[Rfam]
RNA sequence: CAAUUUGUUGGUGAUGGAGCUCACCAGAACCGUCCACCUGACGUGGACUGAUAGCCCCUACCCGUGU
Numbered sequence: 001c002a003a004u005u006u007g008u009u010g011g012u013g014a015u016g017g018a019g020c021u022c023a024c025c026a027g028a029a030c031c032g033u034c035c036a037c038c039u040g041a042c043g044u045g046g047a048c049u050g051a052u053a054g055c056c057c058c059u060a061c062c063c064g065u066g067u
Base pairs, nucleotide, nucleotide: 010025011024012023013022016058017057019055020054021053032048033047034046035045036044037043
Rfam assigns this 67-nucleotide RNA from Alicyclobacillus hesperidum to the family "Fluoride riboswitch aptamer (crcB RNA motif)". The organism belongs to Alicyclobacillus, within Bacteria.